[Rfam]
RNA: Flavo-1 RNA
RNA sequence: CUUGAGUUAGCGAUUGUAGUGAAAAUCCUUUUUAGCGUUCUUUGCUAAAAAGAUUGUAGCGUAAAGCGCGGUGGCGA
Dot-bracket structure: .........(((.((...((...((((..((((((((.....)))))))).))))...))...)).)))........